[Rfam]
RNA sequence: GAAUAAUCAUAAACAGAGCUUUAUAUUGUUC
Numbered sequence: 001g002a003a004u005a006a007u008c009a010u011a012a013a014c015a016g017a018g019c020u021u022u023a024u025a026u027u028g029u030u031c
Stems, first nucleotide, its partner, number of pairs: 001031007009024005014018001
The family of this 31-nucleotide RNA sequence from Aquarana catesbeiana is "Iron response element II". For this family Rfam cites "Translational regulation of mammalian and Drosophila citric acid cycle enzymes via iron-responsive elements" (Gray et al., Proc Natl Acad Sci U S A, 1996). The family has 30 seed sequences and 5,197 matches in Rfam 15.1. The match comes from Rfam's covariance-model search (32 bits). Rfam describes the family as follows. IRE, TFRC, SLC40A1, SDHB, SLC11A2, CDC42BPA, ACO2, ALAS2_H.SAPIENS, CDC14A, EPAS1, ALAS2, qoxD, Hao1, NDUFS1, transferrin, Aconitate.